[Rfam]
RNA sequence: GCCAAGCACUUACAACUGUUUGCAGAGGAAACUGAGACUUUGUAACCAUGCCUCAGUCUUGUCUGCAAAGAAGUAAGUGCUUGGC
Numbered sequence: 001g002c003c004a005a006g007c008a009c010u011u012a013c014a015a016c017u018g019u020u021u022g023c024a025g026a027g028g029a030a031a032c033u034g035a036g037a038c039u040u041u042g043u044a045a046c047c048a049u050g051c052c053u054c055a056g057u058c059u060u061g062u063c064u065g066c067a068a069a070g071a072a073g074u075a076a077g078u079g080c081u082u083g084g085c
Base pairs, nucleotide, nucleotide: 001085002084004082005081006080007079008078009077010076011075012074013073017071019069020068021067022066023065024064025063026062028060029059031057032056033055034054035053036052041050042049043048
A member of the RNA family "mir-452 microRNA precursor family" from Galemys pyrenaicus, 85 nucleotides long.
On this family, see Jima et al., Blood 2010: "Deep sequencing of the small RNA transcriptome of normal and malignant human B cells identifies hundreds of novel microRNAs".
The family's consensus secondary structure was predicted with RNAalifold.
It scores 95 bits against the family's covariance model.